[Rfam]
RNA sequence: AUGUGACCUAUGGACUUCCCUUUGUCAUCCUAUGCCUGGACUCAUACAAAAAGGGGCUGGGAAGGCAAAGGGACGCCCAGUCGUCAUACGA
Numbered sequence: 001a002u003g004u005g006a007c008c009u010a011u012g013g014a015c016u017u018c019c020c021u022u023u024g025u026c027a028u029c030c031u032a033u034g035c036c037u038g039g040a041c042u043c044a045u046a047c048a049a050a051a052a053g054g055g056g057c058u059g060g061g062a063a064g065g066c067a068a069a070g071g072g073a074c075g076c077c078c079a080g081u082c083g084u085c086a087u088a089c090g091a
Stems, first nucleotide, its partner, number of pairs: 017073006024066002028062005034057004
A member of the RNA family "mir-204 microRNA precursor family" from Collichthys lucidus, 91 nucleotides long. A search with the family's covariance model found it, with a score of 90 bits. NCBI's taxonomy places the organism under Eukaryota, Deuterostomia, Osteoglossocephalai, Neoteleostei, Collichthys.